A member of the RNA family "Antisense RNA which regulates isiA expression" from Musa balbisiana, 178 nucleotides long. The literature on the family includes a 2006 paper in Proc Natl Acad Sci U S A by Duhring et al., "An internal antisense RNA regulates expression of the photosynthesis gene isiA". The organism belongs to Musa, within Eukaryota. A search with the family's covariance model found it, with a score of 104 bits.
[Rfam]
RNA sequence: AACUCACAAAUAUGACAAGGGGGCUAAGGGUCACGUGGUAAUUUUUUCUUAAAUCUCCCCCAGGGGCCCAGGUAUCAUAUAGCCCAAAAUAAACAGCCUUGAGCACUAGAAGAAAAGCACUAGACUAAAACAAAAUAAGUGAUACCCAAAUGGUAGUCAUGUUAUUUCGAUCUUUCCU
Numbered sequence: 001a002a003c004u005c006a007c008a009a010a011u012a013u014g015a016c017a018a019g020g021g022g023g024c025u026a027a028g029g030g031u032c033a034c035g036u037g038g039u040a041a042u043u044u045u046u047u048c049u050u051a052a053a054u055c056u057c058c059c060c061c062a063g064g065g066g067c068c069c070a071g072g073u074a075u076c077a078u079a080u081a082g083c084c085c086a087a088a089a090u091a092a093a094c095a096g097c098c099u100u101g102a103g104c105a106c107u108a109g110a111a112g113a114a115a116a117g118c119a120c121u122a123g124a125c126u127a128a129a130a131c132a133a134a135a136u137a138a139g140u141g142a143u144a145c146c147c148a149a150a151u152g153g154u155a156g157u158c159a160u161g162u163u164a165u166u167u168c169g170a171u172c173u174u175u176c177c178u
Stems, first nucleotide, its partner, number of pairs: 138175002141172003146169001148167003